RNA sequence: CCAAUGUGGAUACCCUGGGAGGUCACUCUCCCCGGGCUCUGUCCAGGUGGCCUAGGGGAGCAUAGGGCUCUGCCCUGUGAUGUACAAUCCCUUUCCACAACGUUGGAGAAGAAGCUGGGCUUCGUGCCUGCACCUGCAUAUUCCUACAACUUCUUAGAGUCCUUUGGGCAGUGACUGGGGAGAUAAACCAUGCAGGAAACAGUC
Numbered sequence: 001c002c003a004a005u006g007u008g009g010a011u012a013c014c015c016u017g018g019g020a021g022g023u024c025a026c027u028c029u030c031c032c033c034g035g036g037c038u039c040u041g042u043c044c045a046g047g048u049g050g051c052c053u054a055g056g057g058g059a060g061c062a063u064a065g066g067g068c069u070c071u072g073c074c075c076u077g078u079g080a081u082g083u084a085c086a087a088u089c090c091c092u093u094u095c096c097a098c099a100a101c102g103u104u105g106g107a108g109a110a111g112a113a114g115c116u117g118g119g120c121u122u123c124g125u126g127c128c129u130g131c132a133c134c135u136g137c138a139u140a141u142u143c144c145u146a147c148a149a150c151u152u153c154u155u156a157g158a159g160u161c162c163u164u165u166g167g168g169c170a171g172u173g174a175c176u177g178g179g180g181a182g183a184u185a186a187a188c189c190a191u192g193c194a195g196g197a198a199a200c201a202g203u204c
Stems, first nucleotide, its partner, number of pairs: 001106007008044005014036003018029004047098004056091004060085001062083003065078001133196007150182006159169004
A member of the RNA family "Small nucleolar RNA SNORA73 family" from Octodon degus, 204 nucleotides long. Rfam links the family to the GO terms nucleolus and RNA processing. Clan: snR30-U17 clan. Rfam classes the family as an H/ACA-box small nucleolar RNA. The family's consensus secondary structure is taken from published work. From the family's description: U17 (SNORA73A and SNORA73B) also known as E1 belongs to the H/ACA class of small nucleolar RNAs (snoRNAs). Vertebrate U17 is intron-encoded and ranges in length from 200-230 nucleotides, longer than most snoRNAs. It is one of the most abundant snoRNAs in human cells and is essential for the cleavage of pre-rRNA within the 5' external transcribed spacer (ETS). Lineage of the source: Eukaryota > Deuterostomia > Chordata > Dipnotetrapodomorpha > Octodon. The family has 66 seed sequences and 2,326 matches in Rfam 15.1.